RNA sequence: GCAAGGACGAAACGAGCCCACCAGAGAGCUCCCGUUCUUCGGCGUUUCGGGGAGGAAACGCCCGCCUAGAUCGAAUGAUCGAGAAAAUAGCCAGCCCGUCGCGAUUAUCCCCCGCGGCGGGUUUGGUGUAUCUGGG
Numbered sequence: 001g002c003a004a005g006g007a008c009g010a011a012a013c014g015a016g017c018c019c020a021c022c023a024g025a026g027a028g029c030u031c032c033c034g035u036u037c038u039u040c041g042g043c044g045u046u047u048c049g050g051g052g053a054g055g056a057a058a059c060g061c062c063c064g065c066c067u068a069g070a071u072c073g074a075a076u077g078a079u080c081g082a083g084a085a086a087a088u089a090g091c092c093a094g095c096c097c098g099u100c101g102c103g104a105u106u107a108u109c110c111c112c113c114g115c116g117g118c119g120g121g122u123u124u125g126g127u128g129u130a131u132c133u134g135g136g
Stems, first nucleotide, its partner, number of pairs: 001040001003039007014031004019026001041062008066135005071082004089127001091125001093123011
A member of the RNA family "Caulobacter sRNA CrfA" from Caulobacter vibrioides, 136 nucleotides long. A reference for the family is Landt et al. (2008), "Small non-coding RNAs in Caulobacter crescentus", Mol Microbiol. The pairing is the family consensus, mapped onto this sequence.